[Rfam]
RNA sequence: CGAAUUAUUAUCAUCAUUCCAUAGGAGUGGUGGGAUUUGUGAUGCGUCAAUAAUUUCUGAAACCCGCCCAAGAGGCGGGUUUU
Numbered sequence: 001c002g003a004a005u006u007a008u009u010a011u012c013a014u015c016a017u018u019c020c021a022u023a024g025g026a027g028u029g030g031u032g033g034g035a036u037u038u039g040u041g042a043u044g045c046g047u048c049a050a051u052a053a054u055u056u057c058u059g060a061a062a063c064c065c066g067c068c069c070a071a072g073a074g075g076c077g078g079g080u081u082u083u
Base pairs, nucleotide, nucleotide: 011033012032013031014030015029016028017027060082061081062080063079064078065077066076067075068074
Dot-bracket structure: ..........(((((((.........)))))))..........................(((((((((.....))))))))).